[Rfam]
RNA sequence: GCUAGGAAGAGGAAGAAAGAGAAGGCGUAAGAGCAGUGGGAAUGAGAACAUAGAGGAAAACUUAACUUAACUAGUUCUUUACCUCUUUUCUUGAGGUGGAAAUUCAGUUUGGCAUUUCCCAGUGCCUCUCAUUCCUAUUAUUCUUAGGUGCUCCUUCCCAUUUCUUUUUGUU
Numbered sequence: 001g002c003u004a005g006g007a008a009g010a011g012g013a014a015g016a017a018a019g020a021g022a023a024g025g026c027g028u029a030a031g032a033g034c035a036g037u038g039g040g041a042a043u044g045a046g047a048a049c050a051u052a053g054a055g056g057a058a059a060a061c062u063u064a065a066c067u068u069a070a071c072u073a074g075u076u077c078u079u080u081a082c083c084u085c086u087u088u089u090c091u092u093g094a095g096g097u098g099g100a101a102a103u104u105c106a107g108u109u110u111g112g113c114a115u116u117u118c119c120c121a122g123u124g125c126c127u128c129u130c131a132u133u134c135c136u137a138u139u140a141u142u143c144u145u146a147g148g149u150g151c152u153c154c155u156u157c158c159c160a161u162u163u164c165u166u167u168u169u170g171u172u
Base pairs, nucleotide, nucleotide: 009163010162011161015157016156017155021153022152026148028146029145030144031143032142033141035139037137038136039135040134041133042132043131044130045129046128047127049124050123051122053120055119056118057117058116059115
RNA: MIR2118 microRNA precursor family
Organism: Aegilops tauschii